[Rfam]
The record is a 35-nucleotide RNA sequence from Cervus elaphus, which matches "Iron response element I" in Rfam. For this family Rfam cites "Identification of the iron-responsive element for the translational regulation of human ferritin mRNA" (Hentze et al., Science, 1987). It is annotated as a cis-regulatory element. The match comes from Rfam's covariance-model search (47 bits). The family's consensus secondary structure is taken from published work. The organism belongs to Cervus elaphus, within Eukaryota.
RNA sequence: CCGUCUCCUGCUUCAACAGUGUUUGGACAGAACGG
Numbered sequence: 001c002c003g004u005c006u007c008c009u010g011c012u013u014c015a016a017c018a019g020u021g022u023u024u025g026g027a028c029a030g031a032a033c034g035g
Base pairs, nucleotide, nucleotide: 001035002034003033004032006031007030010028012027013026014025015024016023017021